This 97-nucleotide sequence belongs to the Rfam family "TPP riboswitch aptamer (THI element)".
[Rfam]
RNA sequence: CCACAUGACUCGGGGUGCCCCAUCAAUGAUGGGCUGAGAAAUACCCGUAUUACCUGAUCUGGAUAAUGCCAGCGUAGGGAAGUCAGAUGCCUCACCG
Number, nucleotide and partner (000 for none) at each position: 001c000002c000003a000004c000005a000006u085007g084008a083009c082010u081011c047012g046013g045014g044015g000016u041017g034018c033019c032020c031021c000022a000023u000024c000025a000026a000027u000028g000029a000030u000031g020032g019033g018034c017035u000036g000037a000038g000039a000040a000041a016042u000043a000044c014045c013046c012047g011048u000049a000050u000051u000052a000053c078054c077055u076056g075057a000058u000059c072060u071061g070062g069063a000064u000065a000066a000067u000068g000069c062070c061071a060072g059073c000074g000075u056076a055077g054078g053079g000080a000081a010082g009083u008084c007085a006086g000087a000088u000089g000090c000091c000092u000093c000094a000095c000096c000097g000